SAM riboswitch aptamer (S box leader): a 110-nucleotide RNA from Geobacillus kaustophilus.

[Rfam]
RNA sequence: CUCUUAUCAAGAGAGGUGGAGGGAUGUGCCCAAUGAAGCCCGGCAACCGUCAGCGCAUGUGCUGAAAUGGUGCCAAUUCACACAAAGCGGCCUGCUUUGAGAGAUAAGAG
Numbered sequence: 001c002u003c004u005u006a007u008c009a010a011g012a013g014a015g016g017u018g019g020a021g022g023g024a025u026g027u028g029c030c031c032a033a034u035g036a037a038g039c040c041c042g043g044c045a046a047c048c049g050u051c052a053g054c055g056c057a058u059g060u061g062c063u064g065a066a067a068u069g070g071u072g073c074c075a076a077u078u079c080a081c082a083c084a085a086a087g088c089g090g091c092c093u094g095c096u097u098u099g100a101g102a103g104a105u106a107a108g109a110g
Stems, first nucleotide, its partner, number of pairs: 001110008013041001015040003021031003025082004042074004047070002050065003078102001083099006
Dot-bracket structure: ((((((((....(.(((...(((.[[[[)))......))))((((.((.(((..........)))...))))))...(]]]]((((((.....))))))..)))))))))
Rfam's curators put it in the seed alignment. Pairs were carried over by alignment from the consensus structure, which is taken from published work. Gene Ontology term of the family: regulation of gene expression.